This 105-nucleotide RNA from Cynara cardunculus belongs to the Rfam family "Small nucleolar RNA Z161/Z228". The literature on the family includes a 2003 paper in Nucleic Acids Res by Chen et al., "The high diversity of snoRNAs in plants: identification and comparative study of 120 snoRNA genes from Oryza sativa".

[Rfam]
RNA sequence: GAACCAAGUGACGAUUCUGGAUUCAAUCUCACGACGGUCGUCUGAAUCACGUCUUUUUGUAGGACUGUGAUAAAUUGAUGUAUUGAUCCAAAUUUGCUGAUGGUU
Numbered sequence: 001g002a003a004c005c006a007a008g009u010g011a012c013g014a015u016u017c018u019g020g021a022u023u024c025a026a027u028c029u030c031a032c033g034a035c036g037g038u039c040g041u042c043u044g045a046a047u048c049a050c051g052u053c054u055u056u057u058u059g060u061a062g063g064a065c066u067g068u069g070a071u072a073a074a075u076u077g078a079u080g081u082a083u084u085g086a087u088c089c090a091a092a093u094u095u096g097c098u099g100a101u102g103g104u105u
Stems, first nucleotide, its partner, number of pairs: 001105002004102001048069003